Histidine operon leader: a 144-nucleotide sequence from Nicoletella semolina. The match comes from Rfam's covariance-model search (56 bits).
[Rfam]
RNA sequence: UCAUCACCAUCACUUAACCUGAUAUCUUUCGGGCAUUUGAGUGUGGUCGGAAGAUAGUAAAUCUUCCGAGUACGUAUAAAGUGCAAUCCUAUAUAGCAGAAAAUACAUAACCUCUCGGAAGGAAACCUUCGAGAGGUUUUUUUA
Numbered sequence: 001u002c003a004u005c006a007c008c009a010u011c012a013c014u015u016a017a018c019c020u021g022a023u024a025u026c027u028u029u030c031g032g033g034c035a036u037u038u039g040a041g042u043g044u045g046g047u048c049g050g051a052a053g054a055u056a057g058u059a060a061a062u063c064u065u066c067c068g069a070g071u072a073c074g075u076a077u078a079a080a081g082u083g084c085a086a087u088c089c090u091a092u093a094u095a096g097c098a099g100a101a102a103a104u105a106c107a108u109a110a111c112c113u114c115u116c117g118g119a120a121g122g123a124a125a126c127c128u129u130c131g132a133g134a135g136g137u138u139u140u141u142u143u144a
Stems, first nucleotide, its partner, number of pairs: 008045003011039002015035001018033005047069008107140001109138011121126001

The family's consensus secondary structure is taken from published work. At least 6 amino acid operons are known to be regulated by attenuation. In each a leader sequence of 150-200 bp is found upstream of the first gene in the operon. This leader sequence can assume two different secondary structures known as the terminator and the anti-terminator structure. The organism belongs to Nicoletella, within Bacteria.